Shown here is a 204-nucleotide RNA, a member of the family "raiA RNA". The family's RNA type in Rfam is riboswitch. Pairs were carried over by alignment from the consensus structure, which is taken from published work.

[Rfam]
RNA sequence: UAAAGAUAGGUCUGUGGAUGAAAGUCGAUGCUAGUCGCAGGCAAAACGAUCCACGUAAGCUUAGAAAAAUUCUAAGUGAGCAUGGUGCGGUGUAGAAGUAAGUCCUACCAAGUAAUUGAGAGGGUUAGUAGUGAGGGGUUAAUUCCUAGUAGCAAAAGCUCCAGUAGGCGAGUGUGGGGGCAAAAUCCAGGUCAGCUAUUUUUA
Numbered sequence: 001u002a003a004a005g006a007u008a009g010g011u012c013u014g015u016g017g018a019u020g021a022a023a024g025u026c027g028a029u030g031c032u033a034g035u036c037g038c039a040g041g042c043a044a045a046a047c048g049a050u051c052c053a054c055g056u057a058a059g060c061u062u063a064g065a066a067a068a069a070u071u072c073u074a075a076g077u078g079a080g081c082a083u084g085g086u087g088c089g090g091u092g093u094a095g096a097a098g099u100a101a102g103u104c105c106u107a108c109c110a111a112g113u114a115a116u117u118g119a120g121a122g123g124g125u126u127a128g129u130a131g132u133g134a135g136g137g138g139u140u141a142a143u144u145c146c147u148a149g150u151a152g153c154a155a156a157a158g159c160u161c162c163a164g165u166a167g168g169c170g171a172g173u174g175u176g177g178g179g180g181c182a183a184a185a186u187c188c189a190g191g192u193c194a195g196c197u198a199u200u201u202u203u204a
Base pairs, nucleotide, nucleotide: 001204002203003202004201005200006199007198008197009196012195013194014193015189016188017187018186019185028175029174030173031041034091035090036089037088038087039086050085051084058077061074064071083182104168105167106166107165108164109118110117111116122161123160124159125158131153132152137146138145